A member of the RNA family "Bacterial RNase P class A" from Cognatiyoonia sediminum, 380 nucleotides long.
[Rfam]
RNA sequence: GCGGAUGGCUGGAUGAUCGCGGCACCGGACUUGAUCUGGGGUCGAGGAAAGUCCGGACUCCACAAAGCAACGGUGCCGGGUAACGCCCGGCGGGGGCAACCCCAGGGAAAGCGCCACAGAGAACAGACGGCCUUGCGUGCAAGGUCACGGUGAAACGGUGGGGUAAGAGCCCACCGCGCGAGCGGCAACGUAAGCGGCACGGCAAGCCCCACCAGGAGCAAUGCCAAAUAGGGACCUCGCGUGGGCAACCACGGGGUGGCUUUAACCCCAGAUGGUCCGGGUUGGCAGCUAGAGGGUGACUGGCAACAGGCACUUUAGAUGAAUGAUCAUCCAUAGGGGGAACCCUAGGACAGAAUCCGGCUUAUAGGCCAUCCGUGCGC
Numbered sequence: 001g002c003g004g005a006u007g008g009c010u011g012g013a014u015g016a017u018c019g020c021g022g023c024a025c026c027g028g029a030c031u032u033g034a035u036c037u038g039g040g041g042u043c044g045a046g047g048a049a050a051g052u053c054c055g056g057a058c059u060c061c062a063c064a065a066a067g068c069a070a071c072g073g074u075g076c077c078g079g080g081u082a083a084c085g086c087c088c089g090g091c092g093g094g095g096g097c098a099a100c101c102c103c104a105g106g107g108a109a110a111g112c113g114c115c116a117c118a119g120a121g122a123a124c125a126g127a128c129g130g131c132c133u134u135g136c137g138u139g140c141a142a143g144g145u146c147a148c149g150g151u152g153a154a155a156c157g158g159u160g161g162g163g164u165a166a167g168a169g170c171c172c173a174c175c176g177c178g179c180g181a182g183c184g185g186c187a188a189c190g191u192a193a194g195c196g197g198c199a200c201g202g203c204a205a206g207c208c209c210c211a212c213c214a215g216g217a218g219c220a221a222u223g224c225c226a227a228a229u230a231g232g233g234a235c236c237u238c239g240c241g242u243g244g245g246c247a248a249c250c251a252c253g254g255g256g257u258g259g260c261u262u263u264a265a266c267c268c269c270a271g272a273u274g275g276u277c278c279g280g281g282u283u284g285g286c287a288g289c290u291a292g293a294g295g296g297u298g299a300c301u302g303g304c305a306a307c308a309g310g311c312a313c314u315u316u317a318g319a320u321g322a323a324u325g326a327u328c329a330u331c332c333a334u335a336g337g338g339g340g341a342a343c344c345c346u347a348g349g350a351c352a353g354a355a356u357c358c359g360g361c362u363u364a365u366a367g368g369c370c371a372u373c374c375g376u377g378c379g380c
Stems, first nucleotide, its partner, number of pairs: 001376010011365001012331007020044004025039004049363003053360005058218004066262002072213004076090005091105001092103004106209002111207002113203003128149002130145006157175006176198001177196003182191003222287004232278005253269005295314004300309003